[Rfam]
RNA sequence: UGACGGGGGCCUGCACAAGCGGUGGAGCAUGUGGUUUAAUUCGAAGCAACGCGCAGAACCUUACCAGCCUUUGACAUCCUGGUCGCGGAUUAGAGAGAUCUUUUCCUUCAGUUCGGCUGGACCAGUGACAGGUGCUGCAUGGCUGUCGUCAGCUCGUGUCGUGAGAUGUUGGGUUAAGUCCCGCAACGAGCGCAACCCUCGUCCUUAGUUGCCAUCAUUUAGUUGGGCACUUUAAGGAAACUGCCGGUGAUAAGCCGGAGGAAGGUGGGGAUGACGUCAAGUCCUCAUGGCCCUUACAGGCUGGGCUACACACGUGCUACAAUGGCGGUGACAGUGAGCAGCUAACUCGCGAGAGUACGCUAAUCUCUAAAAACCGUCUCAGUUCGGAUUGUUCUCUGCAACUCGAGAGCAUGAAGGCGGAAUCGCUAGUAAUCGCGGAUCAGCAUGCCGCGGUGAAUACGUUCCCAGGCCUUGUACACACCGCCCGUCACAUCAUGGGAGUUGGUUUCACCCGAAGAUGGUGCGCUAACCUGCUUGCAGGAGGCAGCCAGCCACGGUGGGAUCAGCGACUGGGAUGAAGUCGUAACAAGG
Numbered sequence: 001u002g003a004c005g006g007g008g009g010c011c012u013g014c015a016c017a018a019g020c021g022g023u024g025g026a027g028c029a030u031g032u033g034g035u036u037u038a039a040u041u042c043g044a045a046g047c048a049a050c051g052c053g054c055a056g057a058a059c060c061u062u063a064c065c066a067g068c069c070u071u072u073g074a075c076a077u078c079c080u081g082g083u084c085g086c087g088g089a090u091u092a093g094a095g096a097g098a099u100c101u102u103u104u105c106c107u108u109c110a111g112u113u114c115g116g117c118u119g120g121a122c123c124a125g126u127g128a129c130a131g132g133u134g135c136u137g138c139a140u141g142g143c144u145g146u147c148g149u150c151a152g153c154u155c156g157u158g159u160c161g162u163g164a165g166a167u168g169u170u171g172g173g174u175u176a177a178g179u180c181c182c183g184c185a186a187c188g189a190g191c192g193c194a195a196c197c198c199u200c201g202u203c204c205u206u207a208g209u210u211g212c213c214a215u216c217a218u219u220u221a222g223u224u225g226g227g228c229a230c231u232u233u234a235a236g237g238a239a240a241c242u243g244c245c246g247g248u249g250a251u252a253a254g255c256c257g258g259a260g261g262a263a264g265g266u267g268g269g270g271a272u273g274a275c276g277u278c279a280a281g282u283c284c285u286c287a288u289g290g291c292c293c294u295u296a297c298a299g300g301c302u303g304g305g306c307u308a309c310a311c312a313c314g315u316g317c318u319a320c321a322a323u324g325g326c327g328g329u330g331a332c333a334g335u336g337a338g339c340a341g342c343u344a345a346c347u348c349g350c351g352a353g354a355g356u357a358c359g360c361u362a363a364u365c366u367c368u369a370a371a372a373a374c375c376g377u378c379u380c381a382g383u384u385c386g387g388a389u390u391g392u393u394c395u396c397u398g399c400a401a402c403u404c405g406a407g408a409g410c411a412u413g414a415a416g417g418c419g420g421a422a423u424c425g426c427u428a429g430u431a432a433u434c435g436c437g438g439a440u441c442a443g444c445a446u447g448c449c450g451c452g453g454u455g456a457a458u459a460c461g462u463u464c465c466c467a468g469g470c471c472u473u474g475u476a477c478a479c480a481c482c483g484c485c486c487g488u489c490a491c492a493u494c495a496u497g498g499g500a501g502u503u504g505g506u507u508u509c510a511c512c513c514g515a516a517g518a519u520g521g522u523g524c525g526c527u528a529a530c531c532u533g534c535u536u537g538c539a540g541g542a543g544g545c546a547g548c549c550a551g552c553c554a555c556g557g558u559g560g561g562a563u564c565a566g567c568g569a570c571u572g573g574g575a576u577g578a579a580g581u582c583g584u585a586a587c588a589a590g591g
Base pairs, nucleotide, nucleotide: 001478002477003475004474005473007472008471009470010469011468012467013466015462016461019426020425021424022423023422024320026318027317028316029315030314031313032312033311034309035308040055042053043052064304065303066302067301068300069299070298077128078127079125080124081123082122083121088105089104092101093100094099108120109119110118111117131293132292134291135290136289137288140287141286142282143281144280145278147276148275152191153190154189155188156187157186158167159166160165170183171182172181173180197270198269199268200267202238203237204236205235206234207233208232212227213226216225217224241261242260244258245257246256247255248254324378325377326376327375328374329373336367337366338365341360342359346355347354348353385416390411391410392409393408394407395406396405432454433453434452435451436450437449438448481590483587486583487582491577492576493575494574496572497571498570501567502566503565504564505563506562507561508560509559510558511557512556517552519550520549521548522547525545526544527543530541531540532539533538

Bacterial small subunit ribosomal RNA: a 591-nucleotide part of an RNA from Qipengyuania oceanensis.
A search with the family's covariance model found it, with a score of 1563 bits.
On this family, see Yusupov et al., Science 2001: "Crystal structure of the ribosome at 5.5 A resolution".